Overview
This 131-nucleotide sequence from Silurus meridionalis belongs to the Rfam family "Small Cajal body specific RNA 8". scaRNAs are a specific class of small nuclear RNAs which localise to the Cajal bodies and guide the modification of RNA polymerase II transcribed spliceosomal RNAs U1, U2, U4, U5 and U12. U92 belong to the H/ACA box class of guide RNAs as it has the predicted hairpin-hinge-hairpin-tail structure, conserved H/ACA-box motifs and is found associated with GAR1. For this family Rfam cites "RNomics: an experimental approach that identifies 201 candidates for novel, small, non-messenger RNAs in mouse" (Huttenhofer et al., EMBO J, 2001). The family has 22 seed sequences and 955 matches in Rfam 15.1. The family's consensus secondary structure is taken from published work. By type it is a small Cajal body RNA. The source organism's lineage runs through Eukaryota, Deuterostomia, Actinopteri, Clupeocephala and Silurus. It scores 126 bits against the family's covariance model.

RNA sequence: UGGGAAACUGAUACAUGGGCAGUUCUGAACUAUGCGCUGCCCAUCACUAGCUUUCCCAAGAUAAUACCUGCUCUCUGAUGACCGGGGCGAAUUAAGAGAAAUCGCAACGGACAGAUACGGAGCAGACAAUC
Numbered sequence: 001u002g003g004g005a006a007a008c009u010g011a012u013a014c015a016u017g018g019g020c021a022g023u024u025c026u027g028a029a030c031u032a033u034g035c036g037c038u039g040c041c042c043a044u045c046a047c048u049a050g051c052u053u054u055c056c057c058a059a060g061a062u063a064a065u066a067c068c069u070g071c072u073c074u075c076u077g078a079u080g081a082c083c084g085g086g087g088c089g090a091a092u093u094a095a096g097a098g099a100a101a102u103c104g105c106a107a108c109g110g111a112c113a114g115a116u117a118c119g120g121a122g123c124a125g126a127c128a129a130u131c
Stems, first nucleotide, its partner, number of pairs: 002057006015044004022037002025034001068125007082110003087105004